Nucleotides: 061
Stems, first nucleotide, its partner, number of pairs: 001060005007054003010050009
Number, partner (000 for none) and nucleotide at each position: 001060a002059a003058c004057a005056a006000u007054a008053u009052c010050c011049u012048g013047a014046u015045g016044c017043u018042g019000c020000a021000u022000g023000a024000g025000u026000g027000u028000g029000u030000c031000a032000a033000g034000u035000a036000g037000a038000a039000c040000u041000c042018c043017a044016g045015c046014a047013u048012c049011a050010g051000u052009g053008a054007u055000u056005u057004u058003g059002u060001u061000g